RNA: MIR6152 microRNA precursor family
Nucleotides: 128
Base pairs, nucleotide, nucleotide: 003126004125009122010121011120012119013118014117015116017114018113020112021111023109024108026107027106028105029104030103031102034097035096036095037090
Number, partner (000 for none) and nucleotide at each position: 001000u002000a003126g004125a005000c006000a007000u008000a009122u010121u011120a012119u013118u014117g015116u016000a017114u018113u019000c020112a021111a022000c023109u024108g025000u026107a027106u028105u029104c030103a031102c032000g033000a034097u035096a036095u037090g038000u039000a040000u041000u042000u043000a044000u045000g046000a047000a048000u049000a050000c051000a052000g053000u054000a055000a056000c057000g058000u059000a060000a061000a062000u063000a064000g065000c066000g067000c068000a069000a070000u071000u072000c073000a074000u075000g076000a077000u078000c079000u080000a081000u082000u083000c084000a085000g086000u087000u088000g089000u090037u091000u092000u093000a094000a095036a096035u097034g098000a099000a100000a101000a102031g103030u104029g105028a106027a107026u108024c109023a110000a111021u112020u113018a114017a115000c116015a117014u118013a119012a120011u121010a122009g123000a124000c125004u126003c127000c128000a